A member of the RNA family "Glycine riboswitch aptamer" from Loktanella salsilacus, 88 nucleotides long. NCBI's taxonomy places the organism under Bacteria, Pseudomonadati, Pseudomonadota, Roseobacteraceae, Loktanella. A search with the family's covariance model found it, with a score of 71 bits.
RNA sequence: UAAGCUUGUGCAGGAGAGACCAGUCCUGACCUGGCGCCGAAGGAGCAACCCCCCGGAAACUCUCAGGCAAACGGACUGCACGAAAGCU
Number, nucleotide and partner (000 for none) at each position: 001u000002a000003a000004g000005c000006u083007u082008g081009u080010g079011c078012a077013g076014g000015a000016g000017a000018g000019a000020c034021c033022a032023g031024u000025c000026c000027u000028g000029a000030c000031c023032u022033g021034g020035c000036g068037c067038c066039g064040a063041a000042g000043g062044a061045g060046c000047a000048a000049c056050c055051c000052c000053c000054c000055g050056g049057a000058a000059a000060c045061u044062c043063u040064c039065a000066g038067g037068c036069a000070a000071a000072c000073g000074g000075a000076c013077u012078g011079c010080a009081c008082g007083a006084a000085a000086g000087c000088u000